[Rfam]
RNA sequence: GCACCAAGCCAGCCGGUGGAUGGCUCGGCUCGGGCGCUGACGAAGGGCGCGGCAAGUGGCGAAAUGCCCGGGGUAGGCACACGCAGCCUUUGAACCCGGGAUUCCCGAAUGGGACCUCCUGCCCCUUUGGGGCGCACCCGACUCGACGAGAGUUCGGGUGUGGGAACUCCCCGAACGGAAACAUCUUAGUAGGGGAAGGAGGAGAAAUCAACCGAGAUCCCCUGAGUAGGGGCGACCGAAAGGGGGAUAGCCCAAACCAAACCCGCCGGCGGCAAGUCGGUGGGAAUGUGGUGUUAUUGGCCUCCAGUCUGGUUUAAAGCCGGCCUCCCUGGACUACCUAGCCGAACUCUCCUGGAAUGGAGGGCCAUAGAGGGUGACAGCCCCGUAGGCUAAAGGUAGGUGGGAGGUGACUGGAGGCAGAGUACCAUCCCCUGGUUCGGGGGUGGGAAGUUGGGGGCCACGUGCCUCCAAGGCUAAAUACGUCCCGAGACCGAUAGCGAACUAAGUACCGUGAGGGAAAGCUGCAAAGCACCCCGGAAGGGGGGUGAAAAGAGCCUGAAACCGGCUGGUCAUAGUAG
Number, nucleotide and partner (000 for none) at each position: 001g000002c000003a000004c000005c000006a000007a000008g570009c569010c568011a567012g566013c565014c564015g563016g562017u000018g000019g000020a000021u000022g556023g522024c521025u000026c000027g492028g491029c489030u488031c487032g486033g485034g484035c482036g481037c000038u000039g000040a000041c000042g000043a000044a000045g106046g105047g104048c061049g060050c059051g000052g000053c000054a000055a000056g000057u000058g000059g050060c049061g048062a000063a000064a000065u000066g000067c100068c099069c098070g097071g096072g095073g000074u000075a000076g088077g087078c086079a000080c000081a000082c000083g000084c000085a000086g078087c077088c076089u000090u000091u000092g000093a000094a000095c072096c071097c070098g069099g068100g067101a000102u000103u000104c047105c046106c045107g000108a000109a000110u000111g120112g119113g118114a000115c000116c000117u000118c113119c112120u111121g000122c000123c000124c000125c000126u000127u000128u000129g000130g000131g000132g000133c000134g000135c160136a159137c158138c157139c156140g155141a154142c000143u000144c000145g000146a000147c000148g000149a000150g000151a000152g000153u000154u141155c140156g139157g138158g137159u136160g135161u000162g000163g000164g000165a000166a000167c198168u196169c195170c194171c193172c192173g000174a000175a000176c000177g000178g185179a184180a000181a000182c000183a000184u179185c178186u000187u000188a000189g000190u000191a000192g172193g171194g170195g169196a168197a000198g167199g000200a000201g000202g000203a000204g000205a000206a000207a000208u215209c214210a000211a000212c000213c000214g209215a208216g000217a000218u000219c246220c245221c244222c243223u242224g000225a000226g000227u000228a000229g237230g236231g000232g000233c000234g000235a000236c230237c229238g000239a000240a000241a000242g223243g222244g221245g220246g219247a000248u000249a475250g474251c473252c472253c000254a000255a000256a000257c291258c290259a289260a000261a000262c000263c000264c000265g000266c000267c279268g278269g277270c276271g000272g000273c000274a000275a000276g270277u269278c268279g267280g000281u000282g000283g000284g000285a000286a000287u000288g000289u259290g258291g257292u000293g000294u000295u000296a000297u000298u000299g000300g000301c000302c000303u000304c414305c413306a412307g411308u000309c000310u000311g000312g000313u000314u000315u000316a000317a000318a000319g000320c000321c000322g000323g000324c000325c406326u405327c404328c403329c000330u000331g000332g000333a000334c000335u000336a000337c000338c000339u000340a000341g390342c389343c388344g000345a000346a000347c363348u000349c362350u361351c360352c359353u000354g000355g000356a000357a000358u000359g352360g351361a350362g349363g347364g000365c000366c370367a000368u000369a000370g366371a000372g384373g383374g382375u000376g000377a000378c000379a000380g000381c000382c374383c373384c372385g000386u000387a000388g343389g342390c341391u000392a000393a000394a000395g000396g000397u000398a000399g000400g000401u000402g000403g328404g327405a326406g325407g000408u000409g000410a000411c307412u306413g305414g304415a000416g000417g000418c000419a000420g000421a000422g000423u000424a000425c446426c445427a444428u443429c442430c441431c440432c000433u000434g000435g000436u000437u000438c000439g000440g431441g430442g429443g428444u427445g426446g425447g000448a000449a000450g000451u000452u000453g469454g468455g467456g466457g465458c000459c000460a000461c000462g000463u000464g000465c457466c456467u455468c454469c453470a000471a000472g252473g251474c250475u249476a000477a000478a000479u000480a000481c036482g035483u000484c034485c033486c032487g031488a030489g029490a000491c028492c027493g000494a000495u000496a000497g000498c000499g000500a000501a000502c000503u000504a000505a000506g000507u000508a000509c516510c515511g000512u000513g000514a000515g510516g509517g000518a000519a000520a000521g024522c023523u000524g000525c000526a000527a000528a000529g000530c000531a000532c000533c000534c000535c000536g000537g000538a000539a000540g000541g000542g000543g000544g000545g000546u000547g000548a000549a000550a000551a000552g000553a000554g000555c000556c022557u000558g000559a000560a000561a000562c016563c015564g014565g013566c012567u011568g010569g009570u008571c000572a000573u000574a000575g000576u000577a000578g000
A member of the RNA family "Archaeal large subunit ribosomal RNA" from Saccharolobus islandicus, 578 nucleotides of a longer RNA. It is one of the family's seed sequences. Taxonomically the source falls in Saccharolobus islandicus (Archaea, Thermoproteati, Thermoprotei, Sulfolobales). Its Rfam clan is "LSU clan".